[Rfam]
This 103-nucleotide sequence from Gracilibacillus ureilyticus belongs to the Rfam family "SAM riboswitch aptamer (S box leader)". Rfam links the family to the GO term regulation of gene expression. Pairs were carried over by alignment from the consensus structure, which is taken from published work.
Nucleotides: 103
Base pairs, nucleotide, nucleotide: 001103003101004100005099006098007097008096013042014041015040016039017038021031022030023029025078026077027076028075043070044069045068046067048066049065051062052061053060054059074095081092082091083090084089
Number, partner (000 for none) and nucleotide at each position: 001103u002000a003101c004100u005099u006098a007097u008096c009000a010000a011000g012000a013042g014041a015040g016039g017038u018000u019000u020000a021031g022030g023029g024000a025078c026077u027076g028075g029023c030022c031021c032000g033000g034000u035000g036000a037000c038017a039016c040015c041014u042013c043070a044069g045068c046067a047000a048066c049065c050000a051062g052061c053060a054059u055000a056000u057000c058000g059054a060053u061052g062051c063000a064000u065049g066048g067046u068045g069044c070043u071000a072000a073000u074095u075028c076027c077026a078025g079000a080000c081092g082091g083090u084089a085000a086000u087000a088000u089084u090083a091082c092081c093000a094000a095074a096008g097007a098006u099005a100004a101003g102000g103001a